[Rfam]
The family of this 134-nucleotide RNA from Salmonella enterica is "RtT RNA".
About the family: This family represents a bacterial cis-regulatory element known as RtT RNA. The exact function of RtT is unknown although it is thought that it may be involved in changing the cellular response in relation to amino acid starvation.
By type it is a cis-regulatory element.
The family's consensus secondary structure is taken from published work.
Gene Ontology term of the family: cellular response to amino acid starvation.
The match comes from Rfam's covariance-model search (95 bits).

RNA sequence: UGUAUCUGAAGUCUGACGAGGAUGAGAACCUCCGGGGGCAAGAGGUUCGACUCGAGCGAAGCGAGAGAACGUUGCGUCAGCAACGGCCCGCAGGGCGAGCCACGUAGUGGCGAGUCAUCCUCUAUCACCGGCAG
Numbered sequence: 001u002g003u004a005u006c007u008g009a010a011g012u013c014u015g016a017c018g019a020g021g022a023u024g025a026g027a028a029c030c031u032c033c034g035g036g037g038g039c040a041a042g043a044g045g046u047u048c049g050a051c052u053c054g055a056g057c058g059a060a061g062c063g064a065g066a067g068a069a070c071g072u073u074g075c076g077u078c079a080g081c082a083a084c085g086g087c088c089c090g091c092a093g094g095g096c097g098a099g100c101c102a103c104g105u106a107g108u109g110g111c112g113a114g115u116c117a118u119c120c121u122c123u124a125u126c127a128c129c130g131g132c133a134g
Stems, first nucleotide, its partner, number of pairs: 015125001018122004023117001033097002046092001048090002053063002070085006